Annotation: The family of this 73-nucleotide RNA from Gaeumannomyces tritici is "bZIP non canonical Hac1/Xbp1 intron". Rfam classes the family as a small RNA. bZIP intron RNA is a non-canonical intron that was first reported in HAC1 gene in yeast and XBP1 gene in Metazoa.
RNA sequence: CGUCUCCCCCGACCUGACACAACAUCCUGCCGAGGUGUUGUGCUCCGACCUGCAGUGUCGGUCGGCGGAGGCG
Numbered sequence: 001c002g003u004c005u006c007c008c009c010c011g012a013c014c015u016g017a018c019a020c021a022a023c024a025u026c027c028u029g030c031c032g033a034g035g036u037g038u039u040g041u042g043c044u045c046c047g048a049c050c051u052g053c054a055g056u057g058u059c060g061g062u063c064g065g066c067g068g069a070g071g072c073g
Stems, first nucleotide, its partner, number of pairs: 001073007010064005021039006047059003
The literature on the family includes a 2018 paper in mSphere by Iracane et al., "Identification of an Exceptionally Long Intron in the HAC1 Gene of Candida parapsilosis".